[Rfam]
RNA sequence: AUGCCACACGCUAGGAGGGACUUUAAAGUCAAAACUACCAAAAUAAAUAAAUAAAUUCCCUCGUAUAUUAUAUACAAUGUGUUUAUUUAUUUUGGUAGUUUUGAUUUUAAGAGUCCCUCCUAGCG
Numbered sequence: 001a002u003g004c005c006a007c008a009c010g011c012u013a014g015g016a017g018g019g020a021c022u023u024u025a026a027a028g029u030c031a032a033a034a035c036u037a038c039c040a041a042a043a044u045a046a047a048u049a050a051a052u053a054a055a056u057u058c059c060c061u062c063g064u065a066u067a068u069u070a071u072a073u074a075c076a077a078u079g080u081g082u083u084u085a086u087u088u089a090u091u092u093u094g095g096u097a098g099u100u101u102u103g104a105u106u107u108u109a110a111g112a113g114u115c116c117c118u119c120c121u122a123g124c125g
Stems, first nucleotide, its partner, number of pairs: 009125003013121010024109007036045002047078002051073001052070001054069003